[Rfam]
RNA sequence: GGGGGUAGAUAGGUGCUGGUGUGCCUGCCGGUCUUCAAAACCGUGUUGUGGUGCUAAGACCACCAUGGGUGGGUUCGAUUCCCACAUACUCCC
Numbered sequence: 001g002g003g004g005g006u007a008g009a010u011a012g013g014u015g016c017u018g019g020u021g022u023g024c025c026u027g028c029c030g031g032u033c034u035u036c037a038a039a040a041c042c043g044u045g046u047u048g049u050g051g052u053g054c055u056a057a058g059a060c061c062a063c064c065a066u067g068g069g070u071g072g073g074u075u076c077g078a079u080u081c082c083c084a085c086a087u088a089c090u091c092c093c
Base pairs, nucleotide, nucleotide: 001093002092003091004090005089006088007087008085011026012025013024014023015022016021029043030042031041032040050063070084071083072082073081

Notes:
The record is a 93-nucleotide RNA from Clostridium amylolyticum, which matches "Selenocysteine transfer RNA" in Rfam. The literature on the family includes a 2000 paper in FEBS Lett by Mizutani and Goto, "Eukaryotic selenocysteine tRNA has the 9/4 secondary structure". It scores 69 bits against the family's covariance model. Rfam 15.1 lists 4,211 matches to the family in 3,344 species. Rfam links the family to the GO term triplet codon-amino acid adaptor activity. The organism belongs to Clostridium, within Bacteria.